[Rfam]
Nucleotides: 123
Stems, first nucleotide, its partner, number of pairs: 004120007017029003031103002033092002035049004044090002052068003072088005094106003
Number, partner (000 for none) and nucleotide at each position: 001000u002000a003000u004120a005119a006118u007117c008116u009115u010114c011000a012000g013000g014000g015000c016000g017029a018028g019027g020000u021000g022000c023000a024000a025000u026000u027019c028018c029017u030000c031103a032102c033092c034091g035049g036048c037047g038046g039000u040000u041000a042000u043000a044090g045089c046038c047037c048036g049035c050000g051000a052068g053067c054066c055000a056000a057000g058000a059000g060000u061000u062000u063000u064000u065000u066054g067053g068052c069000u070000g071000a072088c073087u074086u075085g076084g077000u078000g079000a080000a081000a082000a083000u084076c085075c086074a087073a088072g089045g090044c091034c092033g093000a094106c095105a096104g097000u098000u099000a100000a101000a102032g103031u104096c105095u106094g107000g108000a109000u110000g111000g112000g113000a114010g115009a116008a117007g118006a119005u120004u121000u122000a123000u
Overview: The family of this 123-nucleotide RNA sequence from Anaerosalibacter bizertensis is "FMN riboswitch aptamer (RFN element)". The literature on the family includes a 2002 paper in Nucleic Acids Res by Vitreschak et al., "Regulation of riboflavin biosynthesis and transport genes in bacteria by transcriptional and translational attenuation". Pairs were carried over by alignment from the consensus structure, which is taken from published work. NCBI's taxonomy places the organism under Bacteria, Bacillati, Tissierellales, Sporanaerobacteraceae, Anaerosalibacter. Rfam's curators write: The RFN element is a highly conserved domain that is found frequently in the 5'-untranslated regions of prokaryotic mRNAs that encode for flavin mononucleotide (FMN) biosynthesis and transport proteins.